This 433-nucleotide part of an RNA from Mycoplasmopsis fermentans belongs to the Rfam family "Bacterial large subunit ribosomal RNA".
RNA sequence: CUCCUCGAAAUAGCUUUAGGGCUAGCGUGUAGUGUUAAGUAGUGGUGGUAGAGCACUGAAUAUGGAAUGGCCUCGCCUAGGGGUACUGACUAUAAUCAAACUCCGAAUACCGCUAUGUAUUGCUAUGCAGUCGGAACCGGGGUGCUAACGUCCCGGCUCGCGAGGGCAACAACCCAGAUCGCCGGCUAAGGUCCCAAAAUCGUGUUAAGUGAGAAAGGUUGUGAGGUUUCAUAAACAACUAGGAAGUUGGCUCAGAAGCAGCCACCUUUUAAAGAGUGCGUAAUAGCUCACUAGUCAAGAGACCUUGCGCCAACAAUUUAACGGGACUAAAACACGAUACCGAAGCCGCGGGUAAUUAUUUUACGUUAGAGGAGCGUUCCUAGGGCAAUGAAGUCAGACCGUGAGGACUGGUGGAGCGCUAGGAAGUGAGAAU
Numbered sequence: 001c002u003c004c005u006c007g008a009a010a011u012a013g014c015u016u017u018a019g020g021g022c023u024a025g026c027g028u029g030u031a032g033u034g035u036u037a038a039g040u041a042g043u044g045g046u047g048g049u050a051g052a053g054c055a056c057u058g059a060a061u062a063u064g065g066a067a068u069g070g071c072c073u074c075g076c077c078u079a080g081g082g083g084u085a086c087u088g089a090c091u092a093u094a095a096u097c098a099a100a101c102u103c104c105g106a107a108u109a110c111c112g113c114u115a116u117g118u119a120u121u122g123c124u125a126u127g128c129a130g131u132c133g134g135a136a137c138c139g140g141g142g143u144g145c146u147a148a149c150g151u152c153c154c155g156g157c158u159c160g161c162g163a164g165g166g167c168a169a170c171a172a173c174c175c176a177g178a179u180c181g182c183c184g185g186c187u188a189a190g191g192u193c194c195c196a197a198a199a200u201c202g203u204g205u206u207a208a209g210u211g212a213g214a215a216a217g218g219u220u221g222u223g224a225g226g227u228u229u230c231a232u233a234a235a236c237a238a239c240u241a242g243g244a245a246g247u248u249g250g251c252u253c254a255g256a257a258g259c260a261g262c263c264a265c266c267u268u269u270u271a272a273a274g275a276g277u278g279c280g281u282a283a284u285a286g287c288u289c290a291c292u293a294g295u296c297a298a299g300a301g302a303c304c305u306u307g308c309g310c311c312a313a314c315a316a317u318u319u320a321a322c323g324g325g326a327c328u329a330a331a332a333c334a335c336g337a338u339a340c341c342g343a344a345g346c347c348g349c350g351g352g353u354a355a356u357u358a359u360u361u362u363a364c365g366u367u368a369g370a371g372g373a374g375c376g377u378u379c380c381u382a383g384g385g386c387a388a389u390g391a392a393g394u395c396a397g398a399c400c401g402u403g404a405g406g407a408c409u410g411g412u413g414g415a416g417c418g419c420u421a422g423g424a425a426g427u428g429a430g431a432a433u
Stems, first nucleotide, its partner, number of pairs: 001374006011024005026130001027128007037118001039116008051104001052102002057098003061094004069086001070084005134159002137156007164175003179351004184347003190341003199338007217311003221308010238295005244268003249263003269273001274289001278287002352364004375428001377425007385417002393412005399406002